Background: U12 minor spliceosomal RNA: a 148-nucleotide RNA from Dimorphilus gyrociliatus. It scores 92 bits against the family's covariance model. NCBI's taxonomy places the organism under Eukaryota, Bilateria, Spiralia, Lophotrochozoa, Dimorphilus. It is annotated as a spliceosomal small nuclear RNA. Rfam 15.1 lists 2,106 matches to the family in 1,170 species.

[Rfam]
RNA sequence: AUGCCUUAAACUGAUGAGUAAGGAAAAUUACGGACCCUGGUGAUGCGGGGCCUCCAGGCUUAGUUCUGGAAGAUUUUUUGGAAGGGUAGAGAUCGGCCUGCAGAUGGCUCUGCCUACUUUUGUAGAGCCGCUGCAGGUGAUUUGCCCA
Numbered sequence: 001a002u003g004c005c006u007u008a009a010a011c012u013g014a015u016g017a018g019u020a021a022g023g024a025a026a027a028u029u030a031c032g033g034a035c036c037c038u039g040g041u042g043a044u045g046c047g048g049g050g051c052c053u054c055c056a057g058g059c060u061u062a063g064u065u066c067u068g069g070a071a072g073a074u075u076u077u078u079u080g081g082a083a084g085g086g087u088a089g090a091g092a093u094c095g096g097c098c099u100g101c102a103g104a105u106g107g108c109u110c111u112g113c114c115u116a117c118u119u120u121u122g123u124a125g126a127g128c129c130g131c132u133g134c135a136g137g138u139g140a141u142u143u144g145c146c147c148a
Stems, first nucleotide, its partner, number of pairs: 004023005032053002035050005054069005084147004090143006098136002101133003109126005